[Rfam]
RNA sequence: UAGUAGAUGCACCCUGAUUAAUAAACCCCAGCCAAUUUUGGCCGGGGUUUUUUUUG
Numbered sequence: 001u002a003g004u005a006g007a008u009g010c011a012c013c014c015u016g017a018u019u020a021a022u023a024a025a026c027c028c029c030a031g032c033c034a035a036u037u038u039u040g041g042c043c044g045g046g047g048u049u050u051u052u053u054u055u056g
Stems, first nucleotide, its partner, number of pairs: 003012002025048005031042004
RNA: Nitrogen stress-induced RNA 1